[Rfam]
RNA sequence: UCGCGGGCGACUGCGAGUCUGAAGGAAGCCGGAUGGCAAAGCGCUGGUUCGACGAACAGGAAGCGGAUAUGAGGCGCCACAGGGGGGUAAGGAGUCCGAAAUCUCUGAAGCCCAAAACUUGCACGGAACUCUGUGGCGUAGAUCCGACGGACAUAAGCGUGAAAGUGGGUGCG
Numbered sequence: 001u002c003g004c005g006g007g008c009g010a011c012u013g014c015g016a017g018u019c020u021g022a023a024g025g026a027a028g029c030c031g032g033a034u035g036g037c038a039a040a041g042c043g044c045u046g047g048u049u050c051g052a053c054g055a056a057c058a059g060g061a062a063g064c065g066g067a068u069a070u071g072a073g074g075c076g077c078c079a080c081a082g083g084g085g086g087g088u089a090a091g092g093a094g095u096c097c098g099a100a101a102u103c104u105c106u107g108a109a110g111c112c113c114a115a116a117a118c119u120u121g122c123a124c125g126g127a128a129c130u131c132u133g134u135g136g137c138g139u140a141g142a143u144c145c146g147a148c149g150g151a152c153a154u155a156a157g158c159g160u161g162a163a164a165g166u167g168g169g170u171g172c173g
Stems, first nucleotide, its partner, number of pairs: 001016006030171002036166002041160005047152005064146005074139003078135007085113004091106004
This 173-nucleotide RNA from Curvibacter sp. AEP1-3 belongs to the Rfam family "Group II catalytic intron D1-D4-3".
The source organism's lineage runs through Bacteria, Pseudomonadota, Betaproteobacteria, Comamonadaceae and Curvibacter.
Pairs were carried over by alignment from the consensus structure.